[Rfam]
RNA sequence: CGCUUUCAGCCGACCCACUUCUCCUCCCAUGGGACGUCUGUAAAAACAGCGGCACUCCUCCUCCCAGUCGCUGUUCGAUCUUCAGAAAGCCUGCCGCACCUCCUCCCGCGGCAGGCUUUUUUG
Numbered sequence: 001c002g003c004u005u006u007c008a009g010c011c012g013a014c015c016c017a018c019u020u021c022u023c024c025u026c027c028c029a030u031g032g033g034a035c036g037u038c039u040g041u042a043a044a045a046a047c048a049g050c051g052g053c054a055c056u057c058c059u060c061c062u063c064c065c066a067g068u069c070g071c072u073g074u075u076c077g078a079u080c081u082u083c084a085g086a087a088a089g090c091c092u093g094c095c096g097c098a099c100c101u102c103c104u105c106c107c108g109c110g111g112c113a114g115g116c117u118u119u120u121u122u123g
Stems, first nucleotide, its partner, number of pairs: 007040003011036002014033003045075009087118011
Alphaproteobacterial ar14: a 123-nucleotide RNA sequence from Rhizobium leguminosarum.
NCBI's taxonomy places the organism under Bacteria, Alphaproteobacteria, Hyphomicrobiales, Rhizobium leguminosarum, Rhizobium leguminosarum bv. trifolii.
The literature on the family includes a 2012 paper in RNA Biol by del Val et al., "A survey of sRNA families in alpha-proteobacteria".
Pairs were carried over by alignment from the consensus structure.
Rfam links the family to the GO term biological process involved in symbiotic interaction.